[Rfam]
RNA sequence: UUUCAGCGAUCCGAGCCACACCGGUGCGGCGCGAUCCUGCCCGUAGGUCGCGAGCAAUGCCUGCGCCUC
Dot-bracket structure: ..............(((.....)))...((.((...((..(.(....).)..))...))...)).....
Numbered sequence: 001u002u003u004c005a006g007c008g009a010u011c012c013g014a015g016c017c018a019c020a021c022c023g024g025u026g027c028g029g030c031g032c033g034a035u036c037c038u039g040c041c042c043g044u045a046g047g048u049c050g051c052g053a054g055c056a057a058u059g060c061c062u063g064c065g066c067c068u069c
Stems, first nucleotide, its partner, number of pairs: 015025003029064002032059002037054002041050001043048001

ASpks TB sRNA: a 69-nucleotide RNA from Nocardia sp. SYP-A9097. Lineage of the source: Bacteria > Actinomycetota > Actinomycetes > Mycobacteriales > Nocardia. On this family, see Arnvig and Young, Mol Microbiol 2009: "Identification of small RNAs in Mycobacterium tuberculosis".